[Rfam]
RNA sequence: UUUGAAUCCCGGUUGGAGCAGAAUUUUUUUUGCACAAAAAAUAGACUUUUUAGUGCAAAAAAAUUCUGCUCAAAGCGGGAUUCGAA
Number, nucleotide and partner (000 for none) at each position: 001u000002u000003u000004g000005a000006a000007u000008c000009c078010c077011g076012g000013u074014u073015g000016g000017a000018g069019c068020a000021g000022a000023a064024u063025u062026u061027u000028u000029u059030u058031u057032g056033c055034a054035c053036a000037a000038a000039a000040a000041a000042u000043a000044g000045a000046c000047u000048u000049u000050u000051u000052a000053g035054u034055g033056c032057a031058a030059a029060a000061a026062a025063a024064u023065u000066c000067u000068g019069c018070u000071c000072a000073a014074a013075g000076c011077g010078g009079g000080a000081u000082u000083c000084g000085a000086a000

Shown here is an 86-nucleotide RNA, a member of the family "Flavo-1 RNA". A search with the family's covariance model found it, with a score of 43 bits. The base pairs follow the family's consensus structure, which is taken from published work.